Background: MIR2593 microRNA precursor family: a 117-nucleotide sequence from Trifolium subterraneum. Lineage of the source: Eukaryota > Mesangiospermae > eudicotyledons > Gunneridae > Trifolium. The family's consensus secondary structure was predicted with RNAalifold.
RNA sequence: UUAUAAGAGACAAUUCACCUUUCUAGAUUCAUUAAAUAAUUUAUGUAUCUAGUCUAUAAUAUAGACUAUAUACAUAAAUUAUUUAAUGAAUCUAGAAAGGUGAAUUGUCUCAUAUAA
Numbered sequence: 001u002u003a004u005a006a007g008a009g010a011c012a013a014u015u016c017a018c019c020u021u022u023c024u025a026g027a028u029u030c031a032u033u034a035a036a037u038a039a040u041u042u043a044u045g046u047a048u049c050u051a052g053u054c055u056a057u058a059a060u061a062u063a064g065a066c067u068a069u070a071u072a073c074a075u076a077a078a079u080u081a082u083u084u085a086a087u088g089a090a091u092c093u094a095g096a097a098a099g100g101u102g103a104a105u106u107g108u109c110u111c112a113u114a115u116a117a
Stems, first nucleotide, its partner, number of pairs: 002116004007111001009109005015103003019099008028090018050068004